[Rfam]
RNA sequence: AAACUUACCUGGCGCCGGGUUCAGGGUGAUCAACAACUCUCUGACCCCGGGCGGAGGCUCACCAGUGCACUCCGGUGGGUUGAAGCCCGCGACGGACCCUAAUCGGGUUCUCUCGGACGUACACUUUUUGCUAGUGGGGAGGCCUCGUGCUUCCCUC
Numbered sequence: 001a002a003a004c005u006u007a008c009c010u011g012g013c014g015c016c017g018g019g020u021u022c023a024g025g026g027u028g029a030u031c032a033a034c035a036a037c038u039c040u041c042u043g044a045c046c047c048c049g050g051g052c053g054g055a056g057g058c059u060c061a062c063c064a065g066u067g068c069a070c071u072c073c074g075g076u077g078g079g080u081u082g083a084a085g086c087c088c089g090c091g092a093c094g095g096a097c098c099c100u101a102a103u104c105g106g107g108u109u110c111u112c113u114c115g116g117a118c119g120u121a122c123a124c125u126u127u128u129u130g131c132u133a134g135u136g137g138g139g140a141g142g143c144c145u146c147g148u149g150c151u152u153c154c155c156u157c
Stems, first nucleotide, its partner, number of pairs: 012120003017047005023042004049088004056081003060077004090115003094109002097106002136156005142151001144149001
Rfam assigns this 157-nucleotide sequence from Protopolystoma xenopodis to the family "U1 spliceosomal RNA".
From the family's description: U1 is a small nuclear RNA (snRNA) component of the spliceosome (involved in pre-mRNA splicing). Its 5' end forms complementary base pairs with the 5' splice junction, thus defining the 5' donor site of an intron.
The organism belongs to Protopolystoma, within Eukaryota.
Rfam classes the family as a spliceosomal small nuclear RNA.
On this family, see Oubridge et al., Nature 1994: "Crystal structure at 1.92 A resolution of the RNA-binding domain of the U1A spliceosomal protein complexed with an RNA hairpin".
It scores 97 bits against the family's covariance model.
Its Rfam clan is "U1 clan".